[Rfam]
RNA sequence: AUGGCUUAAACUUAUGAGUAAGGAAAAUAACAAUUCAGGUGGAUACCCAAAUCCUUACUGCUAAUGUGAGAUGAAUUUUUGAGUAGGUAAAGGUUGCCCCUAAGAUGACCCACCUACUUUGUGGGAUGCCUGGGAGUCGUGAUCUGCCUG
Numbered sequence: 001a002u003g004g005c006u007u008a009a010a011c012u013u014a015u016g017a018g019u020a021a022g023g024a025a026a027a028u029a030a031c032a033a034u035u036c037a038g039g040u041g042g043a044u045a046c047c048c049a050a051a052u053c054c055u056u057a058c059u060g061c062u063a064a065u066g067u068g069a070g071a072u073g074a075a076u077u078u079u080u081g082a083g084u085a086g087g088u089a090a091a092g093g094u095u096g097c098c099c100c101u102a103a104g105a106u107g108a109c110c111c112a113c114c115u116a117c118u119u120u121g122u123g124g125g126a127u128g129c130c131u132g133g134g135a136g137u138c139g140u141g142a143u144c145u146g147c148c149u150g
Stems, first nucleotide, its partner, number of pairs: 005022004033052003038047002054070005084150005091145007100134002103131002106128002109125005
RNA: U12 minor spliceosomal RNA
Organism: Carlito syrichta